The family of this 71-nucleotide sequence from Candidatus Photodesmus anomalopis is "tRNA". The family has 954 seed sequences and 5,335,975 matches in Rfam 15.1. The organism belongs to Candidatus Photodesmus anomalopis, within Bacteria. Rfam links the family to the GO term triplet codon-amino acid adaptor activity. The family's consensus secondary structure is taken from published work. Rfam classes the family as a transfer RNA. A search with the family's covariance model found it, with a score of 68 bits.
RNA sequence: GGCGUGUUGGCAGAGUGGUUAUGCAACGGACUGCAAAUCCGUUGACCCCGGUUCAAUUCCGGGACACGCCU
Numbered sequence: 001g002g003c004g005u006g007u008u009g010g011c012a013g014a015g016u017g018g019u020u021a022u023g024c025a026a027c028g029g030a031c032u033g034c035a036a037a038u039c040c041g042u043u044g045a046c047c048c049c050g051g052u053u054c055a056a057u058u059c060c061g062g063g064a065c066a067c068g069c070c071u
Stems, first nucleotide, its partner, number of pairs: 001070007010024003026042005047063005